[Rfam]
RNA: Purine riboswitch aptamer
RNA sequence: UUAAAAUAGAAUCUUUUUUAUCAUAUAUGUGUCUAAUAAGGAGACACGUUUCUACCUGAUACCGUAAACAUCAGACUAUGAUAGAGAGUGUUUUUUAG
Numbered sequence: 001u002u003a004a005a006a007u008a009g010a011a012u013c014u015u016u017u018u019u020a021u022c023a024u025a026u027a028u029g030u031g032u033c034u035a036a037u038a039a040g041g042a043g044a045c046a047c048g049u050u051u052c053u054a055c056c057u058g059a060u061a062c063c064g065u066a067a068a069c070a071u072c073a074g075a076c077u078a079u080g081a082u083a084g085a086g087a088g089u090g091u092u093u094u095u096u097a098g
Stems, first nucleotide, its partner, number of pairs: 018084008029047006056074005